[Rfam]
RNA: FMN riboswitch aptamer (RFN element)
RNA sequence: AAAUGUCUUCAGGGCAGGGUGUGAUUCCCGACCGGCGGUGAUAGUCCGCUACUCCGAAAGGAUCGAACCGGUGAAAUUCCGGUACCGACAGUAAAGUCUGGAUGGAAGAAGAUACAA
Numbered sequence: 001a002a003a004u005g006u007c008u009u010c011a012g013g014g015c016a017g018g019g020u021g022u023g024a025u026u027c028c029c030g031a032c033c034g035g036c037g038g039u040g041a042u043a044g045u046c047c048g049c050u051a052c053u054c055c056g057a058a059a060g061g062a063u064c065g066a067a068c069c070g071g072u073g074a075a076a077u078u079c080c081g082g083u084a085c086c087g088a089c090a091g092u093a094a095a096g097u098c099u100g101g102a103u104g105g106a107a108g109a110a111g112a113u114a115c116a117a
Base pairs, nucleotide, nucleotide: 004114005113006112007111008110009109010108017029018028019027031097032096033087034086035049036048037047038046044085045084053062054061067083068082069081070080071079089100090099091098